[Rfam]
RNA sequence: GUUGUCGUAUUUACUUUAAUCCAUGUAUGUUGUUGUGGAUUGGAGUGAAAUUUAGUUAAAGUUCCACUUCAAUCCACCUCAAUACAUGUGGAUUGAUGUGAAUACGACU
Number, nucleotide and partner (000 for none) at each position: 001g000002u000003u000004g108005u107006c106007g105008u104009a103010u102011u101012u100013a099014c098015u000016u096017u095018a094019a093020u092021c091022c090023a089024u088025g087026u086027a000028u084029g083030u082031u081032g080033u000034u000035g077036u076037g075038g074039a073040u072041u071042g070043g069044a000045g067046u066047g065048a000049a000050a000051u000052u000053u000054a000055g000056u000057u000058a000059a000060a000061g000062u000063u000064c000065c047066a046067c045068u000069u043070c042071a041072a040073u039074c038075c037076a036077c035078c000079u000080c032081a031082a030083u029084a028085c000086a026087u025088g024089u023090g022091g021092a020093u019094u018095g017096a016097u000098g014099u013100g012101a011102a010103u009104a008105c007106g006107a005108c004109u000
Shown here is a 109-nucleotide RNA sequence from Sorghum bicolor, a member of the family "MIR5565 microRNA precursor family". The base pairs follow the family's consensus structure, which was predicted with RNAalifold. Taxonomically the source falls in Sorghum (Eukaryota, Streptophytina, commelinids, Andropogoneae).